RNA: Group II catalytic intron D1-D4-6
Nucleotides: 250
Base pairs, nucleotide, nucleotide: 012036013035014034015033016032020030021029022028023219025217026216038091040089041088045084046083047082050075051074052073053072054071058069059068060067061066109244110242112241113240114239115238116237117236132235133234134233135232136231167194168193169192172188173187174186199230200229201228202227203226205224206223207222208221209220
Number, partner (000 for none) and nucleotide at each position: 001000g002000a003000a004000g005000u006000c007000c008000c009000a010000c011000a012036u013035g014034a015033g016032c017000a018000a019000a020030g021029u022028u023219u024000a025217g026216c027000c028022a029021a030020c031000a032016g033015c034014u035013c036012a037000u038091u039000a040089g041088c042000g043000a044000a045084g046083u047082c048000c049000a050075c051074g052073g053072g054071c055000a056000a057000a058069c059068c060067c061066g062000g063000c064000a065000a066061c067060g068059g069058g070000a071054g072053u073052c074051c075050g076000g077000a078000g079000c080000u081000g082047g083046a084045c085000g086000g087000a088041g089040c090000g091038a092000g093000a094000u095000u096000g097000c098000a099000g100000g101000c102000u103000c104000u105000g106000u107000a108000u109244u110242g111000a112241g113240c114239c115238c116237c117236g118000a119000a120000a121000a122000a123000u124000g125000u126000a127000u128000a129000g130000u131000g132235g133234u134233g135232g136231u137000c138000a139000g140000a141000a142000g143000g144000a145000u146000a147000a148000c149000c150000g151000c152000g153000a154000u155000u156000u157000u158000g159000a160000c161000g162000g163000g164000a165000a166000a167194g168193c169192c170000g171000a172188c173187g174186g175000c176000g177000u178000u179000a180000a181000g182000c183000g184000g185000u186174u187173c188172g189000g190000a191000a192169g193168g194167c195000a196000g197000c198000a199230g200229u201228c202227c203226g204000g205224a206223a207222u208221g209220c210000g211000u212000u213000a214000u215000g216026g217025c218000g219023a220209g221208u222207g223206u224205u225000g226203c227202g228201g229200a230199c231136a232135c233134c234133a235132u236117c237116g238115g239114g240113g241112u242110c243000u244109g245000a246000g247000a248000c249000c250000a